[Rfam]
RNA sequence: UCCUGCUGCCCUCCUUGGGCGUUUCCUCCCUAGACUACGGGCCGCUCUCACGGGCGGCUUUUUUUUGUCGUGU
Numbered sequence: 001u002c003c004u005g006c007u008g009c010c011c012u013c014c015u016u017g018g019g020c021g022u023u024u025c026c027u028c029c030c031u032a033g034a035c036u037a038c039g040g041g042c043c044g045c046u047c048u049c050a051c052g053g054g055c056g057g058c059u060u061u062u063u064u065u066u067g068u069c070g071u072g073u
Base pairs, nucleotide, nucleotide: 008020009019010018011017041058042057043056044055045054046053047052
Makes More Granules Regulator RNA (mmgR): a 73-nucleotide RNA from Methylobacterium gnaphalii. The organism belongs to Methylobacterium, within Bacteria. Pairs were carried over by alignment from the consensus structure. By type it is a small RNA. For this family Rfam cites "Prediction of Sinorhizobium meliloti sRNA genes and experimental detection in strain 2011" (Valverde et al., BMC Genomics, 2008).